The family of this 106-nucleotide RNA sequence from Promicromonospora citrea is "TPP riboswitch aptamer (THI element)". Lineage of the source: Bacteria > Actinomycetota > Micrococcales > Promicromonosporaceae > Promicromonospora. Rfam links the family to the GO term thiamine pyrophosphate binding.

[Rfam]
RNA sequence: GGGAAACGACAGGGGAGCGCCCCGACGGCGCUGAGAGUGCGGAGAACCGCAGACCCUUGAACCUGAUCCGGUUGAUACCGGCGGAGGAAGUCGAGGCACGAUGUUG
Numbered sequence: 001g002g003g004a005a006a007c008g009a010c011a012g013g014g015g016a017g018c019g020c021c022c023c024g025a026c027g028g029c030g031c032u033g034a035g036a037g038u039g040c041g042g043a044g045a046a047c048c049g050c051a052g053a054c055c056c057u058u059g060a061a062c063c064u065g066a067u068c069c070g071g072u073u074g075a076u077a078c079c080g081g082c083g084g085a086g087g088a089a090g091u092c093g094a095g096g097c098a099c100g101a102u103g104u105u106g
Stems, first nucleotide, its partner, number of pairs: 007093004011057004017031005038051005062087003068081004